[Rfam]
RNA sequence: AAUUCCCUACCAUGCGCGUGAUGAUAAGGUAAUUUUUGAGCCAACACCUUAUUGAGGGAAGUUCCGAUCGGAUCGUGCUGUGUAACCACGCGAGUGGCCGACAAAGCGGUUCGUAGGGGCAUCCACGUGGACCACAAAGGUUCAUGAGUUCCCUUGUACACGGCAUAGCGUGGGGAAUUU
Numbered sequence: 001a002a003u004u005c006c007c008u009a010c011c012a013u014g015c016g017c018g019u020g021a022u023g024a025u026a027a028g029g030u031a032a033u034u035u036u037u038g039a040g041c042c043a044a045c046a047c048c049u050u051a052u053u054g055a056g057g058g059a060a061g062u063u064c065c066g067a068u069c070g071g072a073u074c075g076u077g078c079u080g081u082g083u084a085a086c087c088a089c090g091c092g093a094g095u096g097g098c099c100g101a102c103a104a105a106g107c108g109g110u111u112c113g114u115a116g117g118g119g120c121a122u123c124c125a126c127g128u129g130g131a132c133c134a135c136a137a138a139g140g141u142u143c144a145u146g147a148g149u150u151c152c153c154u155u156g157u158a159c160a161c162g163g164c165a166u167a168g169c170g171u172g173g174g175g176a177a178u179u180u
Stems, first nucleotide, its partner, number of pairs: 002178009012166004017162003032149004037144006057124003061120005070112007082102002086097004